[Rfam]
RNA sequence: UAACUGAAGAGUUUGAUCAUGGCUCAGAUUGAACGCUGGCGGCAGGCUUAACACAUGCAAGUCGAGCGGGGAGAUGUAGCUUGCUACAUCACCUAGCGGCGGACGGGUGAGUAAUGCUUAGGAAUCUACCUAUUAGUGGGGGACAACGUUUCGAAAGGGACGCUAAUACCGCAUACGCCCUACGGGGGAAAGCAGGGGCUCUUCGGACCUUGCGCUAAUAGAUGAGCCUAAGUCGGAUUAGCUAGUUGGUGGGGUAAAGGCCUACCAAGGCGACGAUCUGUAGCGGGUCUGAGAGGAUGAUCCGCCACACUGGGACUGAGACACGGCCCAGACUCCUACGGGAGGCAGCAGUGGGGAAUAUUGGACAAUGGGGGGAACCCUGAUCCAGCCAUGCCGCGUGUGUGAAGAAGGCCUUUUGGUUGUAAAGCACUUUAAGCGAGGAGGAGGCUACUUUGGUUAAUACCCAGAGAUAGUGGACGUUACUCGCAGAAUAAGCACCGGCUAACUCUGUGCCAGCAGCCGCGGUAAUACAGAGGGUGCGAGCGUUAAUCGGAUUUACUG
Dot-bracket structure: ........(((((.......))))).((((.((((((.(((((((((....(((.(((..(((..((.((..(((((((....))))))).))..)))))......(((......(((((((..((...(((((((.(.((.....((((((....))))))......)).).....(((....)))....((((((..........)))))).)))))))..)).)))))))(((....(((..((((((((.......)))))))))))......)))..((((((((....))))...))))))).(((((............))))).((((....))))...)))))).).....(.(((...(((((....))))).)))).)).))))))..((((......((((....)))).....))))...(.(((((...(.....(((...................)))...)....)))))....)..(((((......(((((.....((....)).......)))))))))).))))))))))..........
Numbered sequence: 001u002a003a004c005u006g007a008a009g010a011g012u013u014u015g016a017u018c019a020u021g022g023c024u025c026a027g028a029u030u031g032a033a034c035g036c037u038g039g040c041g042g043c044a045g046g047c048u049u050a051a052c053a054c055a056u057g058c059a060a061g062u063c064g065a066g067c068g069g070g071g072a073g074a075u076g077u078a079g080c081u082u083g084c085u086a087c088a089u090c091a092c093c094u095a096g097c098g099g100c101g102g103a104c105g106g107g108u109g110a111g112u113a114a115u116g117c118u119u120a121g122g123a124a125u126c127u128a129c130c131u132a133u134u135a136g137u138g139g140g141g142g143a144c145a146a147c148g149u150u151u152c153g154a155a156a157g158g159g160a161c162g163c164u165a166a167u168a169c170c171g172c173a174u175a176c177g178c179c180c181u182a183c184g185g186g187g188g189a190a191a192g193c194a195g196g197g198g199c200u201c202u203u204c205g206g207a208c209c210u211u212g213c214g215c216u217a218a219u220a221g222a223u224g225a226g227c228c229u230a231a232g233u234c235g236g237a238u239u240a241g242c243u244a245g246u247u248g249g250u251g252g253g254g255u256a257a258a259g260g261c262c263u264a265c266c267a268a269g270g271c272g273a274c275g276a277u278c279u280g281u282a283g284c285g286g287g288u289c290u291g292a293g294a295g296g297a298u299g300a301u302c303c304g305c306c307a308c309a310c311u312g313g314g315a316c317u318g319a320g321a322c323a324c325g326g327c328c329c330a331g332a333c334u335c336c337u338a339c340g341g342g343a344g345g346c347a348g349c350a351g352u353g354g355g356g357a358a359u360a361u362u363g364g365a366c367a368a369u370g371g372g373g374g375g376a377a378c379c380c381u382g383a384u385c386c387a388g389c390c391a392u393g394c395c396g397c398g399u400g401u402g403u404g405a406a407g408a409a410g411g412c413c414u415u416u417u418g419g420u421u422g423u424a425a426a427g428c429a430c431u432u433u434a435a436g437c438g439a440g441g442a443g444g445a446g447g448c449u450a451c452u453u454u455g456g457u458u459a460a461u462a463c464c465c466a467g468a469g470a471u472a473g474u475g476g477a478c479g480u481u482a483c484u485c486g487c488a489g490a491a492u493a494a495g496c497a498c499c500g501g502c503u504a505a506c507u508c509u510g511u512g513c514c515a516g517c518a519g520c521c522g523c524g525g526u527a528a529u530a531c532a533g534a535g536g537g538u539g540c541g542a543g544c545g546u547u548a549a550u551c552g553g554a555u556u557u558a559c560u561g
Stems, first nucleotide, its partner, number of pairs: 009025005027551004032547006039397006045390002047355001052353003056350003061100003066097002069093002073090007107308003116233007125225002130221007138172001140170002147162006178187003192213006234280003241271003246268008283305004287298004310331005333344004361387001363386003369382005400430004410421004434492001436487005444478001450474003495540005506535005516523002
Rfam assigns this 561-nucleotide part of an RNA from Acinetobacter sp. ANC 4558 to the family "Bacterial small subunit ribosomal RNA".
NCBI's taxonomy places the organism under Bacteria, Pseudomonadota, Moraxellales, Moraxellaceae, Acinetobacter.